[Rfam]
Nucleotides: 099
Base pairs, nucleotide, nucleotide: 008095009094010093011092012091013090015088016087017086018085019083020082021080022079
Number, partner (000 for none) and nucleotide at each position: 001000u002000g003000c004000a005000u006000c007000c008095g009094c010093g011092a012091g013090c014000a015088g016087g017086c018085a019083c020082g021080a022079c023000c024000a025000g026000c027000u028000c029000c030000u031000a032000u033000c034000g035000a036000a037000c038000u039000c040000c041000c042000c043000c044000a045000g046000g047000u048000c049000a050000g051000g052000a053000a054000u055000g056000a057000a058000g059000c060000a061000a062000g063000g064000g065000u066000a067000g068000a069000u070000a071000g072000u073000u074000g075000a076000g077000c078000g079022g080021u081000g082020c083019g084000a085018u086017g087016u088015c089000g090013g091012c092011u093010c094009g095008c096000c097000u098000u099000u
A member of the RNA family "Bacteroidales small SRP" from Marinigracilibium pacificum, 99 nucleotides long.
A reference for the family is Ryan et al. (2020), "A high-resolution transcriptome map identifies small RNA regulation of metabolism in the gut microbe Bacteroides thetaiotaomicron", Nat Commun.
The base pairs follow the family's consensus structure, which is taken from published work.
Its Rfam clan is "SRP clan".
Gene Ontology terms of the family: signal recognition particle, plasma membrane targeting and SRP-dependent cotranslational protein targeting to membrane, signal sequence recognition.
The family's RNA type in Rfam is non-coding RNA gene.
The match comes from Rfam's covariance-model search (64 bits).